RNA sequence: CCUUUUGAAAAGCUGAAUUCCCAGGGGUAAAGCCCUGGGAUACGGGGGACCCAACCUUUUUGGGGUGAAUCAGAAGCAAAAAAGCUUCUGUAGGGCUAACCCUUUCGGCCCGAACCCGUCAGCUAACCUCGGAAGCUUUGAAAGGGAGGCAAA
Dot-bracket structure: ..........((((....((((((((......))))))))..(((((....((.......))(((.....((((((........))))))..((((...........))))...))).........)))))..))))................
RNA: c-di-AMP riboswitch aptamer (ydaO/yuaA leader)
Organism: Caldicellulosiruptor saccharolyticus